[Rfam]
RNA sequence: CACCGGCAGGGAAGCGAUGAACCUCUCCCCGUAACCUCGGGCGCCAGGGGUGAGGUGAGCAAGUGGCGCGACCGGCCCUGCGCAGCG
Numbered sequence: 001c002a003c004c005g006g007c008a009g010g011g012a013a014g015c016g017a018u019g020a021a022c023c024u025c026u027c028c029c030c031g032u033a034a035c036c037u038c039g040g041g042c043g044c045c046a047g048g049g050g051u052g053a054g055g056u057g058a059g060c061a062a063g064u065g066g067c068g069c070g071a072c073c074g075g076c077c078c079u080g081c082g083c084a085g086c087g
Stems, first nucleotide, its partner, number of pairs: 001087001003085001005083001006081006014060002022055004027050003039073002041069005
Overview
The record is an 87-nucleotide RNA sequence from Thermanaeromonas sp. C210, which matches "c-di-GMP-II-GAG riboswitch aptamer" in Rfam. For this family Rfam cites "Bioinformatic analysis of riboswitch structures uncovers variant classes with altered ligand specificity" (Weinberg et al., Proc Natl Acad Sci U S A, 2017). Clan: c-di-GMP_II riboswitch clan. Rfam links the family to the GO terms regulation of gene expression and cyclic-di-GMP binding.